[Rfam]
RNA sequence: AGGUGAUGCCGCCUGACCUUUAUCAAUGACGGCACUCGGCCAUGCUGUGGGAAGGAUUACCUUCCUUAGAUGCAUGUCGUCAAUAGGAUGGUGUGAGGAAGGGUUAGAUGCCCU
Numbered sequence: 001a002g003g004u005g006a007u008g009c010c011g012c013c014u015g016a017c018c019u020u021u022a023u024c025a026a027u028g029a030c031g032g033c034a035c036u037c038g039g040c041c042a043u044g045c046u047g048u049g050g051g052a053a054g055g056a057u058u059a060c061c062u063u064c065c066u067u068a069g070a071u072g073c074a075u076g077u078c079g080u081c082a083a084u085a086g087g088a089u090g091g092u093g094u095g096a097g098g099a100a101g102g103g104u105u106a107g108a109u110g111c112c113c114u
Stems, first nucleotide, its partner, number of pairs: 001019004007034005013028001035097004039092005045086002049066007069081004100114005

This 114-nucleotide RNA from Bacillus sp. FJAT-27916 belongs to the Rfam family "epsC RNA". It is annotated as a cis-regulatory element.